[Rfam]
RNA sequence: GGUUGCAAGUUUGAGGCCACAGCAGAAGUGCUUACGGCAUGGCCUGUCAGAGUCCAACAAAUCUGCAAAGUCUGCU
Number, nucleotide and partner (000 for none) at each position: 001g000002g000003u000004u000005g000006c000007a000008a000009g000010u000011u000012u000013g000014a000015g044016g043017c042018c041019a000020c000021a076022g075023c074024a073025g072026a071027a000028g040029u039030g038031c000032u000033u000034a000035c000036g000037g000038c030039a029040u028041g018042g017043c016044c015045u000046g000047u000048c065049a064050g063051a062052g000053u060054c000055c000056a000057a000058c000059a000060a053061a000062u051063c050064u049065g048066c000067a000068a000069a000070g000071u026072c025073u024074g023075c022076u021